[Rfam]
RNA sequence: AGUCCCUUUUAAAUUUGGUCCAGAGAGGCUAACAAAGGGUCUAGUUAGUUGCUGCCUUCUAAGCAACGUAUUGGACUCUUUGUGUAUCAUCACAAAGAGUUUUUUUAU
Number, nucleotide and partner (000 for none) at each position: 001a000002g000003u000004c039005c038006c037007u036008u035009u034010u000011a000012a000013a000014u000015u032016u031017g030018g029019u028020c027021c000022a000023g000024a000025g000026a000027g020028g019029c018030u017031a016032a015033c000034a009035a008036a007037g006038g005039g004040u000041c000042u000043a000044g000045u000046u000047a000048g067049u066050u065051g064052c063053u062054g000055c000056c000057u000058u000059c000060u000061a000062a053063g052064c051065a050066a049067c048068g000069u000070a000071u000072u000073g102074g101075a100076c099077u098078c097079u096080u095081u094082g093083u092084g091085u000086a000087u000088c000089a000090u000091c084092a083093c082094a081095a080096a079097g078098a077099g076100u075101u074102u073103u000104u000105u000106u000107a000108u000
RNA: PyrR binding site